U4 spliceosomal RNA: a 147-nucleotide RNA from Ancylostoma caninum. By type it is a spliceosomal small nuclear RNA. Rfam's curators write: U4 small nuclear RNA (U4 snRNA) is a component of the major U2-dependent spliceosome.
RNA sequence: AGCUUUGCGCAGAGGCGAUAACGUGACCAAUGAGGCUCUGCCGAGGUGCGUUUAUUGCUGGUUGAAAACUUUUCCCAAUUGUCCGCGAUGGCCCCUGAGACAUGGGUGUCAUACGCAAUUUUUGAACGCCACCAGAUCACCAAGGCG
Numbered sequence: 001a002g003c004u005u006u007g008c009g010c011a012g013a014g015g016c017g018a019u020a021a022c023g024u025g026a027c028c029a030a031u032g033a034g035g036c037u038c039u040g041c042c043g044a045g046g047u048g049c050g051u052u053u054a055u056u057g058c059u060g061g062u063u064g065a066a067a068a069c070u071u072u073u074c075c076c077a078a079u080u081g082u083c084c085g086c087g088a089u090g091g092c093c094c095c096u097g098a099g100a101c102a103u104g105g106g107u108g109u110c111a112u113a114c115g116c117a118a119u120u121u122u123u124g125a126a127c128g129c130c131a132c133c134a135g136a137u138c139a140c141c142a143a144g145g146c147g
Stems, first nucleotide, its partner, number of pairs: 020052005026047003034042003085116003088112005094106004